Shown here is an 85-nucleotide sequence from Dorcoceras hygrometricum, a member of the family "mir-156 microRNA precursor family". The base pairs follow the family's consensus structure, which was predicted with PFOLD. The match comes from Rfam's covariance-model search (63 bits). This family represents the plant microRNA (miRNA) precursor mir-156. The literature on the family includes a 2002 paper in Genes Dev by Reinhart et al., "MicroRNAs in plants".
RNA sequence: CUGACAGAAGAGAGUGAGCAUACGUGGGCGAUUGUAUAAAGAGUAUGCUUUCGUGUUUACGUGUGCUCACUUCUCUCACUGUCAG
Numbered sequence: 001c002u003g004a005c006a007g008a009a010g011a012g013a014g015u016g017a018g019c020a021u022a023c024g025u026g027g028g029c030g031a032u033u034g035u036a037u038a039a040a041g042a043g044u045a046u047g048c049u050u051u052c053g054u055g056u057u058u059a060c061g062u063g064u065g066c067u068c069a070c071u072u073c074u075c076u077c078a079c080u081g082u083c084a085g
Base pairs, nucleotide, nucleotide: 001085002084003083004082005081006080007079010075011074012073013071014070015069016068017067018066019065020064021063023061024060025059